[Rfam]
RNA sequence: AGAGCGUUAUGAUGAUGACUUCUUCCGAAAGGUUGAGAAUGUCGAGUCUAGCUCGUGGACCCUUACGAAAAUUUUUGAAUUUUCGUAA
Numbered sequence: 001a002g003a004g005c006g007u008u009a010u011g012a013u014g015a016u017g018a019c020u021u022c023u024u025c026c027g028a029a030a031g032g033u034u035g036a037g038a039a040u041g042u043c044g045a046g047u048c049u050a051g052c053u054c055g056u057g058g059a060c061c062c063u064u065a066c067g068a069a070a071a072u073u074u075u076u077g078a079a080u081u082u083u084c085g086u087a088a
Base pairs, nucleotide, nucleotide: 002054003053004052005051011048012047013046017043018042019041021039063088064087065086066085067084068083069082070081071080